[Rfam]
RNA sequence: AUAGCAAGCCGGUCUAUCGCUGCAAUCAAGUAUUGGAGAGGAAAGUCUGGGCAAUGCAGAGCACUGUACUUCUGAAUAGGAAGAAGCUCGUAAGGGUUUAGUAACGUAGCAGAGAAUAACCGCCUUCGGGUAAGGGUGAAAAGGUGAGGUAAGAGCUCACCAAUGGGGUAGGUAACUAUGCCAGUUGUACGUCUUACAGAUUGCAAGACCAUGUAUAUCAUAACUCCGUAAGGAGCAGAGCUGCUCGUUCUGUUUUGAAAAAAGUUGUGAGGGGUAGGUCGCUCAAAGUAGCAGGUGACUGCUAUUUUAGAUAAAUGAUAGACGCUCCUUGUGAGUAACAGGACCCGGCUUACAGGCUUGCUAUUUUU
Numbered sequence: 001a002u003a004g005c006a007a008g009c010c011g012g013u014c015u016a017u018c019g020c021u022g023c024a025a026u027c028a029a030g031u032a033u034u035g036g037a038g039a040g041g042a043a044a045g046u047c048u049g050g051g052c053a054a055u056g057c058a059g060a061g062c063a064c065u066g067u068a069c070u071u072c073u074g075a076a077u078a079g080g081a082a083g084a085a086g087c088u089c090g091u092a093a094g095g096g097u098u099u100a101g102u103a104a105c106g107u108a109g110c111a112g113a114g115a116a117u118a119a120c121c122g123c124c125u126u127c128g129g130g131u132a133a134g135g136g137u138g139a140a141a142a143g144g145u146g147a148g149g150u151a152a153g154a155g156c157u158c159a160c161c162a163a164u165g166g167g168g169u170a171g172g173u174a175a176c177u178a179u180g181c182c183a184g185u186u187g188u189a190c191g192u193c194u195u196a197c198a199g200a201u202u203g204c205a206a207g208a209c210c211a212u213g214u215a216u217a218u219c220a221u222a223a224c225u226c227c228g229u230a231a232g233g234a235g236c237a238g239a240g241c242u243g244c245u246c247g248u249u250c251u252g253u254u255u256u257g258a259a260a261a262a263a264g265u266u267g268u269g270a271g272g273g274g275u276a277g278g279u280c281g282c283u284c285a286a287a288g289u290a291g292c293a294g295g296u297g298a299c300u301g302c303u304a305u306u307u308u309a310g311a312u313a314a315a316u317g318a319u320a321g322a323c324g325c326u327c328c329u330u331g332u333g334a335g336u337a338a339c340a341g342g343a344c345c346c347g348g349c350u351u352a353c354a355g356g357c358u359u360g361c362u363a364u365u366u367u368u
Base pairs, nucleotide, nucleotide: 001364002363003362004361005360006359007358008357009356010355011353012323013322014321015320016319017318018317020038021037023035024034025033026032043351044350045349047348048347049346050345051344052203053202054201055200064199065198066197067196068195069083070082071081072080073079084099086097087096088095089094100194101193104192105191106190107189108188120135121134122131123130124129143161144160145159146158147157148156163185164183165182166181168179169178170177171176207280208279209278210277218270219269220268221267222266250264251263253261254260287306288305289304290303291302292301293300294299

Shown here is a 368-nucleotide RNA from Carboxylicivirga sp. M1479, a member of the family "Bacterial RNase P class A".
The organism belongs to Carboxylicivirga, within Bacteria.
Gene Ontology terms of the family: dimeric ribonuclease P complex, ribonuclease P activity and tRNA processing.
The family's RNA type in Rfam is ribozyme.